A member of the RNA family "Purine riboswitch aptamer" from Enterococcus sp. NBRC 3427, 98 nucleotides long. Taxonomically the source falls in Enterococcus (Bacteria, Bacillati, Bacillota, Lactobacillales). Its family is annotated with purine nucleobase biosynthetic process in the Gene Ontology.
RNA sequence: UAUUAGUUUUACAUACCUACUUAUAUAUCGUCAUAAUAUGGAUGACAGUUUCUAGCCAGUACCGUAAAUGCUGGACUAUAAGUAAAAGAUUGGCUAUU
Numbered sequence: 001u002a003u004u005a006g007u008u009u010u011a012c013a014u015a016c017c018u019a020c021u022u023a024u025a026u027a028u029c030g031u032c033a034u035a036a037u038a039u040g041g042a043u044g045a046c047a048g049u050u051u052c053u054a055g056c057c058a059g060u061a062c063c064g065u066a067a068a069u070g071c072u073g074g075a076c077u078a079u080a081a082g083u084a085a086a087a088g089a090u091u092g093g094c095u096a097u098u
Base pairs, nucleotide, nucleotide: 018084019083020082021081022080023079024078025077030046031045032044033043034042056074057073058072059071060070061069